The family of this 102-nucleotide sequence from Anaeromonas frigoriresistens is "Purine riboswitch aptamer". From the family's description: Riboswitches are metabolite binding domains within certain messenger RNAs that serve as precision sensors for their corresponding targets. The organism belongs to Anaeromonas, within Bacteria.

RNA sequence: AUAUAAUUAAAUAAAAGAACUCAUAUAUUAUUCGGAAUAUGGCCGGAGAGUUUCUACCUAAGAACCGUGAAUUCUUAGACUAUGAGUGAGACUUGUAUUACU
Numbered sequence: 001a002u003a004u005a006a007u008u009a010a011a012u013a014a015a016a017g018a019a020c021u022c023a024u025a026u027a028u029u030a031u032u033c034g035g036a037a038u039a040u041g042g043c044c045g046g047a048g049a050g051u052u053u054c055u056a057c058c059u060a061a062g063a064a065c066c067g068u069g070a071a072u073u074c075u076u077a078g079a080c081u082a083u084g085a086g087u088g089a090g091a092c093u094u095g096u097a098u099u100a101c102u
Stems, first nucleotide, its partner, number of pairs: 019087007029049001031047005058078007